[Rfam]
RNA sequence: GGUGUGUGAUGACUUUACUUUCUUUUGUCGGAUACCCCUUCACUCAACAAUGAGUGAGAUCCUCAGUCUGACAUCC
Numbered sequence: 001g002g003u004g005u006g007u008g009a010u011g012a013c014u015u016u017a018c019u020u021u022c023u024u025u026u027g028u029c030g031g032a033u034a035c036c037c038c039u040u041c042a043c044u045c046a047a048c049a050a051u052g053a054g055u056g057a058g059a060u061c062c063u064c065a066g067u068c069u070g071a072c073a074u075c076c
Stems, first nucleotide, its partner, number of pairs: 001075004
This 76-nucleotide RNA sequence from Perca flavescens belongs to the Rfam family "Small nucleolar RNA SNORD101".
The base pairs follow the family's consensus structure, which was predicted with PFOLD.
The literature on the family includes a 2003 paper in Nucleic Acids Res by Vitali et al., "Identification of 13 novel human modification guide RNAs".